[Rfam]
RNA sequence: CACGUCAGCGCGAGAUGUUGACAUGGAAACAAAUCGCUUCCUCAAGGAUGCGAUUUGCUGCCACGUCAGCAUCUCGCGUUGACGUGG
Numbered sequence: 001c002a003c004g005u006c007a008g009c010g011c012g013a014g015a016u017g018u019u020g021a022c023a024u025g026g027a028a029a030c031a032a033a034u035c036g037c038u039u040c041c042u043c044a045a046g047g048a049u050g051c052g053a054u055u056u057g058c059u060g061c062c063a064c065g066u067c068a069g070c071a072u073c074u075c076g077c078g079u080u081g082a083c084g085u086g087g
Base pairs, nucleotide, nucleotide: 001086002085003084004083005082006081007080008079009078010077011076012075013074014073015072016071017070018069019068020067021066024063025062026061028059030057031056032055033054034053035052036051037050040047041046
This 87-nucleotide RNA from Gossypium raimondii belongs to the Rfam family "MIR7486 microRNA precursor family". It scores 85 bits against the family's covariance model.